[Rfam]
RNA sequence: AGAAGUGCUCUGCUGUGAGAACUGAAUUCCAUAGAUGGUGACAUCUUCAGGUGUCAUCUAUGGGCUUAGUUCUUUUAACAUGGUAACUCAAA
Numbered sequence: 001a002g003a004a005g006u007g008c009u010c011u012g013c014u015g016u017g018a019g020a021a022c023u024g025a026a027u028u029c030c031a032u033a034g035a036u037g038g039u040g041a042c043a044u045c046u047u048c049a050g051g052u053g054u055c056a057u058c059u060a061u062g063g064g065c066u067u068a069g070u071u072c073u074u075u076u077a078a079c080a081u082g083g084u085a086a087c088u089c090a091a092a
Stems, first nucleotide, its partner, number of pairs: 008083002011080002018073008033059004